The record is a 99-nucleotide RNA from Microctonus aethiopoides, which matches "mir-998 microRNA precursor family" in Rfam. The family's consensus secondary structure was predicted with RNAalifold. It scores 54 bits against the family's covariance model. Gene Ontology terms of the family: miRNA-mediated post-transcriptional gene silencing and RISC complex.

[Rfam]
RNA sequence: AAAGUCGUCAUGCGCACUGAAAUCCUAUGGGGCUAUACCUAUAUUGUACCGUAAUAUAGGUAUACAGCACCAUAGGAUUUCAGUGCGCAUGACGACUUG
Numbered sequence: 001a002a003a004g005u006c007g008u009c010a011u012g013c014g015c016a017c018u019g020a021a022a023u024c025c026u027a028u029g030g031g032g033c034u035a036u037a038c039c040u041a042u043a044u045u046g047u048a049c050c051g052u053a054a055u056a057u058a059g060g061u062a063u064a065c066a067g068c069a070c071c072a073u074a075g076g077a078u079u080u081c082a083g084u085g086c087g088c089a090u091g092a093c094g095a096c097u098u099g
Base pairs, nucleotide, nucleotide: 003097004096005095006094007093009091011089012088013087014086015085017083018082019081023077024076025075026074027073028072029071030070033067034066036064037063